[Rfam]
RNA sequence: CCAAAGGCUCUUUUAAGAGCCACCCACAUUGCCUCAAAAAGCACU
Numbered sequence: 001c002c003a004a005a006g007g008c009u010c011u012u013u014u015a016a017g018a019g020c021c022a023c024c025c026a027c028a029u030u031g032c033c034u035c036a037a038a039a040a041g042c043a044c045u
Base pairs, nucleotide, nucleotide: 006021007020008019009018010017011016
This 45-nucleotide sequence from Chanos chanos belongs to the Rfam family "Histone 3' UTR stem-loop". The source organism's lineage runs through Eukaryota, Deuterostomia, Euteleostomi, Teleostei and Chanos. It scores 39 bits against the family's covariance model. Pairs were carried over by alignment from the consensus structure, which is taken from published work. The literature on the family includes a 1995 paper in Nucleic Acids Res by Williams and Marzluff, "The sequence of the stem and flanking sequences at the 3' end of histone mRNA are critical determinants for the binding of the stem-loop binding protein". It is annotated as a cis-regulatory element.